[Rfam]
RNA sequence: UACCGAUCAUAUGACUGACGGAUAAGUGGAUAAACCACGUGAAGUAUGAUCGAAGAAAGCCGACCGUCUGGGCAAUCAUA
Numbered sequence: 001u002a003c004c005g006a007u008c009a010u011a012u013g014a015c016u017g018a019c020g021g022a023u024a025a026g027u028g029g030a031u032a033a034a035c036c037a038c039g040u041g042a043a044g045u046a047u048g049a050u051c052g053a054a055g056a057a058a059g060c061c062g063a064c065c066g067u068c069u070g071g072g073c074a075a076u077c078a079u080a
Stems, first nucleotide, its partner, number of pairs: 004052009015041001017068005026038004059073003
RNA: ZMP/ZTP riboswitch aptamer (pfl RNA motif)